[Rfam]
RNA sequence: CUCCUGGUCUCCAUAGCCAGGAAUACUGCAGAGGCACACCAUCCUUGCCUGAAGUGCGGCGAGCGUAGCUCUCCAAUCCACGGCAGACUUUACCGGAUCCUUUGGCGGCUUACCCCGUCGUCGGGUCUGCAUAUGUCGCGUUUCGCGUUCGCUUCACGUGCGGGGUCUCCAC
Numbered sequence: 001c002u003c004c005u006g007g008u009c010u011c012c013a014u015a016g017c018c019a020g021g022a023a024u025a026c027u028g029c030a031g032a033g034g035c036a037c038a039c040c041a042u043c044c045u046u047g048c049c050u051g052a053a054g055u056g057c058g059g060c061g062a063g064c065g066u067a068g069c070u071c072u073c074c075a076a077u078c079c080a081c082g083g084c085a086g087a088c089u090u091u092a093c094c095g096g097a098u099c100c101u102u103u104g105g106c107g108g109c110u111u112a113c114c115c116c117g118u119c120g121u122c123g124g125g126u127c128u129g130c131a132u133a134u135g136u137c138g139c140g141u142u143u144c145g146c147g148u149u150c151g152c153u154u155c156a157c158g159u160g161c162g163g164g165g166u167c168u169c170c171a172c
Base pairs, nucleotide, nucleotide: 002022003021004020005019006018007017008016033049034048035047036046056152057151058150082094083093
RNA: speF leader